[Rfam]
RNA: Makes More Granules Regulator RNA (mmgR)
Organism: Lichenibacterium minor
Nucleotides: 079
Stems, first nucleotide, its partner, number of pairs: 008020004039064009
Number, partner (000 for none) and nucleotide at each position: 001000g002000g003000c004000g005000u006000a007000u008020g009019c010018c011017c012000u013000u014000c015000u016000u017011g018010g019009g020008c021000g022000u023000u024000u025000c026000c027000u028000c029000c030000c031000u032000a033000g034000a035000c036000u037000u038000g039064g040063g041062c042061c043060g044059c045058u046057u047056g048000c049000c050000g051000c052000g053000a054000g055000g056047c057046a058045g059044g060043c061042g062041g063040c064039c065000u066000c067000u068000u069000u070000g071000u072000u073000u074000c075000g076000g077000g078000g079000c